[Rfam]
RNA: mir-24 microRNA precursor family
Organism: Lates calcarifer
Nucleotides: 070
Base pairs, nucleotide, nucleotide: 003070004069005068008065009064011062012061013060015058016057017056019054020053021052022051023050026048027047028046029045030044
Number, partner (000 for none) and nucleotide at each position: 001000u002000a003070c004069u005068c006000g007000u008065g009064u010000g011062c012061c013060u014000a015058c016057u017056g018000a019054a020053c021052u022051g023050g024000a025000u026048u027047c028046a029045g030044u031000g032000u033000g034000u035000c036000u037000u038000u039000g040000c041000a042000g043000a044030a045029c046028u047027g048026g049000c050023u051022c052021a053020g054019u055000c056017c057016a058015g059000c060013a061012g062011g063000a064009a065008c066000a067000a068005g069004a070003g